[Rfam]
RNA sequence: AACAUUUGAGGUGGUAAAUUUCGUUGCAACCACGCGCCCCUUGGGCUAAAAGAGAUGCAGGAGCGGCGACGCCUGCCAAAUGUU
Numbered sequence: 001a002a003c004a005u006u007u008g009a010g011g012u013g014g015u016a017a018a019u020u021u022c023g024u025u026g027c028a029a030c031c032a033c034g035c036g037c038c039c040c041u042u043g044g045g046c047u048a049a050a051a052g053a054g055a056u057g058c059a060g061g062a063g064c065g066g067c068g069a070c071g072c073c074u075g076c077c078a079a080a081u082g083u084u
Base pairs, nucleotide, nucleotide: 001084002083003082004081005080006079007078008077011033012032013031014030015029024069025068026067027066035052036046037045038044039043057076058075059074060073061072
Annotation: Shown here is an 84-nucleotide RNA from a Eubacteriaceae bacterium, a member of the family "skipping-rope RNA". The family's RNA type in Rfam is small RNA. It scores 66 bits against the family's covariance model.